[Rfam]
RNA sequence: GGCGUAAAGGGCACGUAGGCGGUGAAUCGGGUUGAAAGUCAAAGUCGCCAAAAACUGGCGGAAUGCUCUCGAAACCAAUUCACUUGAGUGAGACAGAGGAGAGUGGAAUUUCGUGUGUAGGGGUGAAAUCCGGAGAUCUACGAAGGAACGCCAAAAGCGAAGGCAGCUCUCUGGGUCCCUACCGACGCUGGGGUGCGAAAGCAUGGGGAGCGAACGGGAUUAGAUACCCUGGUAGUCCAUGCCGUAAACGAUGAGUGUUCGCCCUUGGUCUACGCGGAUCAGGGGCCCAGCUAACGCGUGAAACACUCCGCCUGGGGAGUACGGUCGCAAGACCGAAACUCAAAGGAAU
Numbered sequence: 001g002g003c004g005u006a007a008a009g010g011g012c013a014c015g016u017a018g019g020c021g022g023u024g025a026a027u028c029g030g031g032u033u034g035a036a037a038g039u040c041a042a043a044g045u046c047g048c049c050a051a052a053a054a055c056u057g058g059c060g061g062a063a064u065g066c067u068c069u070c071g072a073a074a075c076c077a078a079u080u081c082a083c084u085u086g087a088g089u090g091a092g093a094c095a096g097a098g099g100a101g102a103g104u105g106g107a108a109u110u111u112c113g114u115g116u117g118u119a120g121g122g123g124u125g126a127a128a129u130c131c132g133g134a135g136a137u138c139u140a141c142g143a144a145g146g147a148a149c150g151c152c153a154a155a156a157g158c159g160a161a162g163g164c165a166g167c168u169c170u171c172u173g174g175g176u177c178c179c180u181a182c183c184g185a186c187g188c189u190g191g192g193g194u195g196c197g198a199a200a201g202c203a204u205g206g207g208g209a210g211c212g213a214a215c216g217g218g219a220u221u222a223g224a225u226a227c228c229c230u231g232g233u234a235g236u237c238c239a240u241g242c243c244g245u246a247a248a249c250g251a252u253g254a255g256u257g258u259u260c261g262c263c264c265u266u267g268g269u270c271u272a273c274g275c276g277g278a279u280c281a282g283g284g285g286c287c288c289a290g291c292u293a294a295c296g297c298g299u300g301a302a303a304c305a306c307u308c309c310g311c312c313u314g315g316g317g318a319g320u321a322c323g324g325u326c327g328c329a330a331g332a333c334c335g336a337a338a339c340u341c342a343a344a345g346g347a348a349u
Stems, first nucleotide, its partner, number of pairs: 001312003009309001011196004016190001018189003022083006030076002032072004037067003045061006088182002090179001092177003098172007105149001109145007120131003157164002201242006210236002215231004253308006261286011290297002314341003323334004
RNA: Bacterial small subunit ribosomal RNA, nucleotides 550 to 898